[Rfam]
RNA sequence: UCCGCAGCUGUAAACAUCCCCGACUGGAAGCUGUGCAGUAAAAUCCUAGCUUUCAGUUCGAUGUUUGCUGCCGCUGG
Numbered sequence: 001u002c003c004g005c006a007g008c009u010g011u012a013a014a015c016a017u018c019c020c021c022g023a024c025u026g027g028a029a030g031c032u033g034u035g036c037a038g039u040a041a042a043a044u045c046c047u048a049g050c051u052u053u054c055a056g057u058u059c060g061a062u063g064u065u066u067g068c069u070g071c072c073g074c075u076g077g
Stems, first nucleotide, its partner, number of pairs: 002076001004074002008070001010068009023057010
A member of the RNA family "mir-30 microRNA precursor family" from Conger conger, 77 nucleotides long. Its family is annotated with RISC complex and gene silencing by miRNA in the Gene Ontology. A reference for the family is Lagos-Quintana et al. (2001), "Identification of novel genes coding for small expressed RNAs", Science. This family consists of the mammalian microRNA (miRNA) precursor mir-30a. Animal miRNAs are transcribed as ~70nt precursors and subsequently processed by the Dicer enzyme to give a ~22nt product. In this case the mature sequence comes from both the 3' (miR-30) and 5' (mir-97-6) arms of the precursor. The extents of the hairpin precursors are not generally known and are estimated based on hairpin prediction.